[Rfam]
The record is a 70-nucleotide RNA from Paramixta manurensis, which matches "tpke11" in Rfam.
Gene Ontology term of the family: response to temperature stimulus.
A search with the family's covariance model found it, with a score of 62 bits.
Taxonomically the source falls in Paramixta (Bacteria, Gammaproteobacteria, Enterobacterales, Erwiniaceae).
Nucleotides: 070
Base pairs, nucleotide, nucleotide: 001009012043013042014041015040016039017038018037019036020035023033024032025031
Number, partner (000 for none) and nucleotide at each position: 001009g002000c003000u004000g005000g006000u007000a008000a009001c010000c011000a012043g013042c014041a015040c016039g017038g018037g019036c020035g021000u022000c023033g024032g025031a026000g027000u028000u029000u030000c031025u032024c033023c034000a035020c036019g037018c038017c039016c040015g041014u042013g043012c044000a045000c046000g047000c048000a049000u050000g051000u052000u053000a054000a055000g056000g057000g058000c059000a060000g061000g062000a063000c064000a065000a066000c067000c068000a069000u070000a